Rfam assigns this 114-nucleotide RNA sequence from Mastacembelus armatus to the family "Potassium channel RNA editing signal". From the family's description: This family represents a group of sequences related to the human potassium channel Kv1.1 hairpin element which directs the efficient modification of an adenosine to inosine by an adenosine deaminase acting on RNA (ADAR). The ADAR modification causes an isoleucine/valine recoding event which lies in the ion-conducting pore of the potassium channel. The match comes from Rfam's covariance-model search (98 bits). The source organism's lineage runs through Eukaryota, Actinopteri, Neopterygii, Ctenosquamata and Mastacembelus. The family has 85 seed sequences and 14,095 matches in Rfam 15.1.
[Rfam]
RNA sequence: GUUGGUUAUGGAGACAUGUAUCCCUCCACUAUUGGGGGGAAGUUUGUUGGAUCUUUGUGCGCCAUCGCCGGAGUACUCACCAUAGCGUUACCUGUUCCCGUAAUCGUGUCCAAU
Numbered sequence: 001g002u003u004g005g006u007u008a009u010g011g012a013g014a015c016a017u018g019u020a021u022c023c024c025u026c027c028a029c030u031a032u033u034g035g036g037g038g039g040a041a042g043u044u045u046g047u048u049g050g051a052u053c054u055u056u057g058u059g060c061g062c063c064a065u066c067g068c069c070g071g072a073g074u075a076c077u078c079a080c081c082a083u084a085g086c087g088u089u090a091c092c093u094g095u096u097c098c099c100g101u102a103a104u105c106g107u108g109u110c111c112a113a114u
Base pairs, nucleotide, nucleotide: 001114002113004111005110007108008107009106010105011104014101015100018097020095021094037077038076040074049063050062